[Rfam]
Nucleotides: 107
Base pairs, nucleotide, nucleotide: 001107004104006101057074058073060071
Number, partner (000 for none) and nucleotide at each position: 001107a002000a003000a004104c005000c006101a007000u008000g009000u010000u011000g012000g013000g014000g015000a016000c017000a018000u019000c020000g021000c022000c023000a024000g025000a026000g027000u028000a029000g030000a031000u032000c033000c034000u035000u036000a037000u038000a039000u040000c041000u042000c043000u044000c045000a046000u047000a048000a049000g050000c051000u052000u053000c054000a055000a056000a057074g058073a059000a060071u061000g062000u063000u064000u065000c066000u067000g068000u069000a070000g071060g072000c073058u074057c075000u076000u077000g078000c079000u080000u081000g082000a083000a084000u085000g086000c087000a088000g089000a090000a091000a092000u093000a094000u095000c096000c097000a098000a099000c100000c101006u102000a103000c104004g105000c106000u107001u